[Rfam]
RNA sequence: UGUUACACUUAUUGUAAGUCGCUUUAGAUAAAAGCGUCUGCUGAAUGACAUGUA
Numbered sequence: 001u002g003u004u005a006c007a008c009u010u011a012u013u014g015u016a017a018g019u020c021g022c023u024u025u026a027g028a029u030a031a032a033a034g035c036g037u038c039u040g041c042u043g044a045a046u047g048a049c050a051u052g053u054a
Stems, first nucleotide, its partner, number of pairs: 013043001014041003020036006
A member of the RNA family "UnaL2 LINE 3' element" from Liparis tanakae, 54 nucleotides long.
It is annotated as a cis-regulatory element.
About the family: The eel long interspersed element (LINE) UnaL2 and its partner short interspersed element (SINE) share a conserved 3' tail containing a stem-loop that is critical for their retrotransposition. Presumably, the first step of retrotransposition is the recognition of their 3' tails by UnaL2-encoded reverse transcriptase. The solution structure of a 17-nucleotide RNA derived from the 3' tail of UnaL2 was determined by NMR.